[Rfam]
RNA sequence: UCUGGCAGUGAUGACACUCUUGCCCUCACUGAGAACACAGUUCGGUAAUGAGAACCUUUACUAUGUACUCAGAAGUGCUGAGCCAGA
Numbered sequence: 001u002c003u004g005g006c007a008g009u010g011a012u013g014a015c016a017c018u019c020u021u022g023c024c025c026u027c028a029c030u031g032a033g034a035a036c037a038c039a040g041u042u043c044g045g046u047a048a049u050g051a052g053a054a055c056c057u058u059u060a061c062u063a064u065g066u067a068c069u070c071a072g073a074a075g076u077g078c079u080g081a082g083c084c085a086g087a
Base pairs, nucleotide, nucleotide: 001087002086003085004084005083006082
Dot-bracket structure: ((((((...........................................................................))))))

The record is an 87-nucleotide RNA sequence from Monodelphis domestica, which matches "Small nucleolar RNA SNORD103/SNORD85" in Rfam. Rfam links the family to the GO terms nucleolus and RNA processing.